A member of the RNA family "Guanidine-I riboswitch aptamer" from Laceyella tengchongensis, 100 nucleotides long. It scores 88 bits against the family's covariance model. Rfam's curators write: This family represents a conserved RNA structure found upstream of the ykkC and yxkD genes in Bacillus subtilis and related genes in other bacteria.
RNA sequence: GGAGAAGUUUUCUAGGGUUCCGUAGCGGCUUUGCUAGACUGGACCGAGAGAAAACGCACGGCUUAAACCGUGUACACGGAGGGACAAAAGCCCGGGAGGA
Numbered sequence: 001g002g003a004g005a006a007g008u009u010u011u012c013u014a015g016g017g018u019u020c021c022g023u024a025g026c027g028g029c030u031u032u033g034c035u036a037g038a039c040u041g042g043a044c045c046g047a048g049a050g051a052a053a054a055c056g057c058a059c060g061g062c063u064u065a066a067a068c069c070g071u072g073u074a075c076a077c078g079g080a081g082g083g084a085c086a087a088a089a090g091c092c093c094g095g096g097a098g099g100a
Stems, first nucleotide, its partner, number of pairs: 007055006015045002020042002022039001023036005056073006075095001077098001081093003